[Rfam]
RNA: Selenocysteine insertion sequence 4
Organism: Atopococcus tabaci
RNA sequence: GGUACGUGUACGCGUUGCGGUGCAACGCUUGCAAAAGC
Number, nucleotide and partner (000 for none) at each position: 001g000002g000003u000004a000005c031006g030007u000008g000009u000010a000011c000012g000013c027014g026015u025016u024017g023018c022019g000020g000021u000022g018023c017024a016025a015026c014027g013028c000029u000030u006031g005032c000033a000034a000035a000036a000037g000038c000